RNA sequence: GAGCUAUGAGCUUUCUUGCAUCUGAGAUUCCAUUGAAGACAUAAGAUCCAACUCUGAGCUCACUGCC
Numbered sequence: 001g002a003g004c005u006a007u008g009a010g011c012u013u014u015c016u017u018g019c020a021u022c023u024g025a026g027a028u029u030c031c032a033u034u035g036a037a038g039a040c041a042u043a044a045g046a047u048c049c050a051a052c053u054c055u056g057a058g059c060u061c062a063c064u065g066c067c
Stems, first nucleotide, its partner, number of pairs: 001061004
RNA: Small nucleolar RNA SNORD19